[Rfam]
RNA: Plant signal recognition particle RNA
RNA sequence: GCCGAGCUCAGUAGAGCGUGCUUCUAACCUAAACAGGGGCAUCAGUGUGUGGGGAGAUUGGUUUGGCCUAAAGGGUAGGGUCCAAGGCUGGCAAUUGCUGGCCUGCCCGUUCCAAGCUGAGAAUUGGGCAGUGUGGCUUCAGCGAAAGCCAAGGCUGCACUGCUCCCAGAGAGGAGGGCACAGUGUGAGGCUGGUUUCACAGAGCAGCGAUCACCUCCCACUCUCAGCUGUGAAAGGAUUACAGGCCGGCGCUUCCCGGGCUCACCAAUGCCUGAUGGGUCGAACCUAAUUGGACCAACACCUUU
Numbered sequence: 001g002c003c004g005a006g007c008u009c010a011g012u013a014g015a016g017c018g019u020g021c022u023u024c025u026a027a028c029c030u031a032a033a034c035a036g037g038g039g040c041a042u043c044a045g046u047g048u049g050u051g052g053g054g055a056g057a058u059u060g061g062u063u064u065g066g067c068c069u070a071a072a073g074g075g076u077a078g079g080g081u082c083c084a085a086g087g088c089u090g091g092c093a094a095u096u097g098c099u100g101g102c103c104u105g106c107c108c109g110u111u112c113c114a115a116g117c118u119g120a121g122a123a124u125u126g127g128g129c130a131g132u133g134u135g136g137c138u139u140c141a142g143c144g145a146a147a148g149c150c151a152a153g154g155c156u157g158c159a160c161u162g163c164u165c166c167c168a169g170a171g172a173g174g175a176g177g178g179c180a181c182a183g184u185g186u187g188a189g190g191c192u193g194g195u196u197u198c199a200c201a202g203a204g205c206a207g208c209g210a211u212c213a214c215c216u217c218c219c220a221c222u223c224u225c226a227g228c229u230g231u232g233a234a235a236g237g238a239u240u241a242c243a244g245g246c247c248g249g250c251g252c253u254u255c256c257c258g259g260g261c262u263c264a265c266c267a268a269u270g271c272c273u274g275a276u277g278g279g280u281c282g283a284a285c286c287u288a289a290u291u292g293g294a295c296c297a298a299c300a301c302c303u304u305u
Base pairs, nucleotide, nucleotide: 001040002039003038004023005022006021007020009018028037029036030035044304045303047301048300049299050298052296053295057291058289059288060287061285062284063283064282065281066280068278069277070276073273074272075271076270077269078263079262080261081260082259083258087255090253091252098249099248100247101246102245103244104243105242107237108236110235111234113232114231115229116228117227118226119225120224121223122222124220126165127164128163129162130161131160132159133158134157135156136155137154138153139152142149143148166171173218174217175216176215177214182211184209185208186207191202192201193200